Notes:
Rfam assigns this 64-nucleotide RNA sequence from Ictalurus punctatus to the family "mir-7552 microRNA precursor family". The base pairs follow the family's consensus structure, which was predicted with RNAalifold. Lineage of the source: Eukaryota > Chordata > Gnathostomata > Neopterygii > Ictalurus.
[Rfam]
RNA sequence: UUACAAUUAAAGGAUAUUUCUUGCGGCUGAAUACGAGAACAGAAAUGUCCCUUAAUUGUUUGGU
Numbered sequence: 001u002u003a004c005a006a007u008u009a010a011a012g013g014a015u016a017u018u019u020c021u022u023g024c025g026g027c028u029g030a031a032u033a034c035g036a037g038a039a040c041a042g043a044a045a046u047g048u049c050c051c052u053u054a055a056u057u058g059u060u061u062g063g064u
Stems, first nucleotide, its partner, number of pairs: 003059008012050010024035002
Dot-bracket structure: ..((((((((.((((((((((..((........)).....)))))))))).)))))))).....